[Rfam]
RNA sequence: GUUGCUUCAUAUGGUGAACUCUCUCCCUGUAAAUGAGAAGUGUUCUAGUUUCCGAAGCAUAAAUUGAUUAAAAUUGCCAGUCUUAAACAGCUCGAUGAAUGGAGUAAUCUAUUAAUCUCUUUACUUUCAUCGCGUUACCUGUCUACUGGUACAUUU
Numbered sequence: 001g002u003u004g005c006u007u008c009a010u011a012u013g014g015u016g017a018a019c020u021c022u023c024u025c026c027c028u029g030u031a032a033a034u035g036a037g038a039a040g041u042g043u044u045c046u047a048g049u050u051u052c053c054g055a056a057g058c059a060u061a062a063a064u065u066g067a068u069u070a071a072a073a074u075u076g077c078c079a080g081u082c083u084u085a086a087a088c089a090g091c092u093c094g095a096u097g098a099a100u101g102g103a104g105u106a107a108u109c110u111a112u113u114a115a116u117c118u119c120u121u122u123a124c125u126u127u128c129a130u131c132g133c134g135u136u137a138c139c140u141g142u143c144u145a146c147u148g149g150u151a152c153a154u155u156u
Stems, first nucleotide, its partner, number of pairs: 003059006016045004020040001022038003076150006089136003093132007